The record is a 94-nucleotide RNA from Penicillium chermesinum, which matches "A. fumigatus snoRNA Afu_263" in Rfam.
The match comes from Rfam's covariance-model search (76 bits).
The organism belongs to Penicillium, within Eukaryota.

[Rfam]
RNA sequence: CUUUGUGAUGAACAAACCUACCAUAAGCAUAGUUCACCUGAGAUCUUCGGAUCGUUGAACGACAACCUUUAUCCAUCUUUCUUUUUACCUGACU
Numbered sequence: 001c002u003u004u005g006u007g008a009u010g011a012a013c014a015a016a017c018c019u020a021c022c023a024u025a026a027g028c029a030u031a032g033u034u035c036a037c038c039u040g041a042g043a044u045c046u047u048c049g050g051a052u053c054g055u056u057g058a059a060c061g062a063c064a065a066c067c068u069u070u071a072u073c074c075a076u077c078u079u080u081c082u083u084u085u086u087a088c089c090u091g092a093c094u
Base pairs, nucleotide, nucleotide: 006020007019010018032060033059034058035057036056042053043052044051045050